[Rfam]
Source information
ALIL pseudoknot: a 117-nucleotide RNA from Siccirubricoccus deserti. Rfam classes the family as a cis-regulatory element. The organism belongs to Siccirubricoccus, within Bacteria. On this family, see Mazauric et al., J Biol Chem 2008: "Apical loop-internal loop RNA pseudoknots: a new type of stimulator of -1 translational frameshifting in bacteria".
RNA sequence: GGCCUGUUUCGCGAUGGCGGAGCUCGACCGCCGCUCGAAGUCAUGAUCGCCUUCAUUGAUGAGCAUCGUGAGGCCUACGGGGUCGAGCCGAUCUGCAGGGUGCUGCCGAUCGCCCCG
Numbered sequence: 001g002g003c004c005u006g007u008u009u010c011g012c013g014a015u016g017g018c019g020g021a022g023c024u025c026g027a028c029c030g031c032c033g034c035u036c037g038a039a040g041u042c043a044u045g046a047u048c049g050c051c052u053u054c055a056u057u058g059a060u061g062a063g064c065a066u067c068g069u070g071a072g073g074c075c076u077a078c079g080g081g082g083u084c085g086a087g088c089c090g091a092u093c094u095g096c097a098g099g100g101u102g103c104u105g106c107c108g109a110u111c112g113c114c115c116c117g
Base pairs, nucleotide, nucleotide: 016032017031018030019029020028078117079116080115081114082113089112090111092109093108095106096105097104098103